[Rfam]
RNA sequence: CCUUGCUGAUGAGUAGCUUCUGACUUUCGUUCUUCUGAGUUUGCUGAAGCCAGAUGACAUUUCUGAGAAGG
Numbered sequence: 001c002c003u004u005g006c007u008g009a010u011g012a013g014u015a016g017c018u019u020c021u022g023a024c025u026u027u028c029g030u031u032c033u034u035c036u037g038a039g040u041u042u043g044c045u046g047a048a049g050c051c052a053g054a055u056g057a058c059a060u061u062u063c064u065g066a067g068a069a070g071g
Stems, first nucleotide, its partner, number of pairs: 001071003004067001

The family of this 71-nucleotide RNA sequence from Tupaia belangeri is "Small nucleolar RNA SNORD59". Its family is annotated with RNA processing and nucleolus in the Gene Ontology. The family is grouped with related families in Rfam's "SNORD59 clan". Rfam 15.1 lists 1,355 matches to the family in 620 species. For this family Rfam cites "Purified box C/D snoRNPs are able to reproduce site-specific 2'-O-methylation of target RNA in vitro" (Galardi et al., Mol Cell Biol, 2002).